[Rfam]
RNA sequence: AAGACUAUACUUUCAGGGAUCAUUUCUAUAGUUUCUGACUUGAGAAAUGUGUUUCUAAAGUGUUUGGUUUCGCUAACCACGAUGAAGAGUUGUGAUAUUCCCUUCUGAGCGUGAAGCUGACAGAGAGUCAUGUUUAGUUCAUGUGUUCUUUGUCAUUGAUGAUUGUUCUGUACUUCUUUAUGGAGUACUGAGGAAGGGAAUAUGAUCAGAGUGGU
Numbered sequence: 001a002a003g004a005c006u007a008u009a010c011u012u013u014c015a016g017g018g019a020u021c022a023u024u025u026c027u028a029u030a031g032u033u034u035c036u037g038a039c040u041u042g043a044g045a046a047a048u049g050u051g052u053u054u055c056u057a058a059a060g061u062g063u064u065u066g067g068u069u070u071c072g073c074u075a076a077c078c079a080c081g082a083u084g085a086a087g088a089g090u091u092g093u094g095a096u097a098u099u100c101c102c103u104u105c106u107g108a109g110c111g112u113g114a115a116g117c118u119g120a121c122a123g124a125g126a127g128u129c130a131u132g133u134u135u136a137g138u139u140c141a142u143g144u145g146u147u148c149u150u151u152g153u154c155a156u157u158g159a160u161g162a163u164u165g166u167u168c169u170g171u172a173c174u175u176c177u178u179u180a181u182g183g184a185g186u187a188c189u190g191a192g193g194a195a196g197g198g199a200a201u202a203u204g205a206u207c208a209g210a211g212u213g214g215u
Stems, first nucleotide, its partner, number of pairs: 001041003005037001007034001009032003015027004051064001055062001076215005095203012109166003119154004125148004129143004170188007

Rfam assigns this 215-nucleotide RNA from Sparus aurata to the family "Small nucleolar RNA U3". Rfam's curators write: Small nucleolar RNAs (snoRNAs) are involved in the processing and modification of rRNA in the nucleolus. There are two main classes of snoRNAs: the box C/D class, and the box H/ACA class. U3 snoRNA is a member of the box C/D class. On this family, see Zwieb, Nucleic Acids Res 1997: "The uRNA database". Clan: U3 clan. It scores 169 bits against the family's covariance model. The family has 87 seed sequences and 19,072 matches in Rfam 15.1.